[Rfam]
RNA sequence: ACUGCUGAGCCAUCUCUCCAGCCCCCAUUAAAAUACUUUUUAAAAGAAAUAACACGGUGGGGCUGGAGAGAUGGCUCAGCGGU
Numbered sequence: 001a002c003u004g005c006u007g008a009g010c011c012a013u014c015u016c017u018c019c020a021g022c023c024c025c026c027a028u029u030a031a032a033a034u035a036c037u038u039u040u041u042a043a044a045a046g047a048a049a050u051a052a053c054a055c056g057g058u059g060g061g062g063c064u065g066g067a068g069a070g071a072u073g074g075c076u077c078a079g080c081g082g083u
Stems, first nucleotide, its partner, number of pairs: 002082023
Dot-bracket structure: .(((((((((((((((((((((((...................................))))))))))))))))))))))).

Rfam assigns this 83-nucleotide RNA sequence from Nannospalax galili to the family "mir-3473 microRNA precursor family". Rfam links the family to the GO terms miRNA-mediated post-transcriptional gene silencing, RISC complex and cellular response to mechanical stimulus. The match comes from Rfam's covariance-model search (78 bits).